[Rfam]
RNA sequence: UCUGCCCGAGAGGCAUUGCUGGUGUGACUGCUUAUCACAUGUACAUCAGUAGGUGGCAGAGAGAAGAAGGGCUCUAUGUGUAUUUAGUGUUCUGACCUAUGUACAUCUGAAUGAUGAAUAGCCGAACAUU
Numbered sequence: 001u002c003u004g005c006c007c008g009a010g011a012g013g014c015a016u017u018g019c020u021g022g023u024g025u026g027a028c029u030g031c032u033u034a035u036c037a038c039a040u041g042u043a044c045a046u047c048a049g050u051a052g053g054u055g056g057c058a059g060a061g062a063g064a065a066g067a068a069g070g071g072c073u074c075u076a077u078g079u080g081u082a083u084u085u086a087g088u089g090u091u092c093u094g095a096c097c098u099a100u101g102u103a104c105a106u107c108u109g110a111a112u113g114a115u116g117a118a119u120a121g122c123c124g125a126a127c128a129u130u
Base pairs, nucleotide, nucleotide: 002059003058004057005056006055007052009050012047013046018044023039024038025037026036027035066127070123071122072121073120075118081113082112084110085109086108087107088105089104090103092101